[Rfam]
RNA: 6S-Flavo RNA
Organism: Winogradskyella sediminis
RNA sequence: ACUCAACGAUCAAUUCUUUAAAAAGGGUGAGUUUAAGUUGUAAAAUCGUGCUGUUAGUGCUGAACUCGAUUCAGUAUCUUAGACAGAUUUUUGAUCAGCUUGUUAGCCCUAAACUUGUUUUUAAGGAGUUU
Numbered sequence: 001a002c003u004c005a006a007c008g009a010u011c012a013a014u015u016c017u018u019u020a021a022a023a024a025g026g027g028u029g030a031g032u033u034u035a036a037g038u039u040g041u042a043a044a045a046u047c048g049u050g051c052u053g054u055u056a057g058u059g060c061u062g063a064a065c066u067c068g069a070u071u072c073a074g075u076a077u078c079u080u081a082g083a084c085a086g087a088u089u090u091u092u093g094a095u096c097a098g099c100u101u102g103u104u105a106g107c108c109c110u111a112a113a114c115u116u117g118u119u120u121u122u123a124a125g126g127a128g129u130u131u
Stems, first nucleotide, its partner, number of pairs: 024110005035101005044092002051086004